[Rfam]
Pseudomonas sRNA P26: a 62-nucleotide RNA from Candidatus Regiella insecticola. Rfam classes the family as a non-coding RNA gene. It scores 47 bits against the family's covariance model. The base pairs follow the family's consensus structure, which was predicted with RNAalifold. From the family's description: This small RNA (sRNA) was computationally identified in the genome of the opportunistic pathogen Pseudomonas aeruginosa and its expression verified by northern blot analysis. The literature on the family includes a 2006 paper in Nucleic Acids Res by Livny et al., "Identification of 17 Pseudomonas aeruginosa sRNAs and prediction of sRNA-encoding genes in 10 diverse pathogens using the bioinformatic tool sRNAPredict2".
RNA sequence: GGUUUUCGACUUGCAGCUUGAUUUUAUAGGCUGAUGGCUGGUGACUCGUGGGUCAUCAGCUU
Dot-bracket structure: .............(((((..........)))))..((((((((((......)))))))))).
Numbered sequence: 001g002g003u004u005u006u007c008g009a010c011u012u013g014c015a016g017c018u019u020g021a022u023u024u025u026a027u028a029g030g031c032u033g034a035u036g037g038c039u040g041g042u043g044a045c046u047c048g049u050g051g052g053u054c055a056u057c058a059g060c061u062u
Stems, first nucleotide, its partner, number of pairs: 014033005036061010